[Rfam]
The record is an 82-nucleotide sequence from Caenorhabditis brenneri, which matches "mir-268 microRNA precursor family" in Rfam. It scores 69 bits against the family's covariance model.
RNA sequence: GCUUUGAAGCGGCAAGAAUUAGAAGCAGUUUUGGUGUCAGACACACUCACUCCUUCUUGUUUUUUCUUCUCUUUUUUCCUUC
Numbered sequence: 001g002c003u004u005u006g007a008a009g010c011g012g013c014a015a016g017a018a019u020u021a022g023a024a025g026c027a028g029u030u031u032u033g034g035u036g037u038c039a040g041a042c043a044c045a046c047u048c049a050c051u052c053c054u055u056c057u058u059g060u061u062u063u064u065u066c067u068u069c070u071c072u073u074u075u076u077u078c079c080u081u082c
Stems, first nucleotide, its partner, number of pairs: 008070002011067002014064006021057005027051003034044004
The organism belongs to Caenorhabditis, within Eukaryota.